[Rfam]
Overview: The record is an 80-nucleotide RNA from Brevundimonas halotolerans, which matches "Makes More Granules Regulator RNA (mmgR)" in Rfam. The source organism's lineage runs through Bacteria, Pseudomonadati, Pseudomonadota, Caulobacterales and Brevundimonas. A search with the family's covariance model found it, with a score of 44 bits. SuhB later renamed mmgR (makes more granules regulator) was a putative non-coding RNA found multiple times in the Agrobacterium tumefaciens genome and related alpha-proteobacteria. Other non-coding RNAs uncovered in the same analysis include: speF, ybhL, metA, and serC.Several studies inSinorhizobium meliloti showed that suhB element is indeed a non-coding RNA:firstly it was detected on Northern blot and called Sm8RNA, secondly in an RNAseq study referred to as SmelC689.The mutant phenotype's (strain lacking the small RNA) cytoplasm contains higher content of polyhydroxybutyrate (PBH)storage granules than wild type strain. The sRNA is required to limit the PBH intracellular accumulation when the nitrogen-fixing Sinorhizobium meliloti is under condition of surplus carbon in relation to nitrogen. It has been renamed to mmgR. Further study confirmed that mmgR fine-tunes the regulation of PBH storage.Northern blot confirmed the expression of the sRNA in other rhizobia species. MmgR homologues were found in most alpha-proteobacteria. A reference for the family is Corbino et al. (2005), "Evidence for a second class of S-adenosylmethionine riboswitches and other regulatory RNA motifs in alpha-proteobacteria", Genome Biol.

RNA sequence: UGACGACCCGCUUCUAGGCGGUCUCCUCCCCCAGACUAUGAGGGCCGGCGCGCAAUCGCCGGCCCUUUUUCUUUGGUUGC
Numbered sequence: 001u002g003a004c005g006a007c008c009c010g011c012u013u014c015u016a017g018g019c020g021g022u023c024u025c026c027u028c029c030c031c032c033a034g035a036c037u038a039u040g041a042g043g044g045c046c047g048g049c050g051c052g053c054a055a056u057c058g059c060c061g062g063c064c065c066u067u068u069u070u071c072u073u074u075g076g077u078u079g080c
Stems, first nucleotide, its partner, number of pairs: 008020001011017001042065009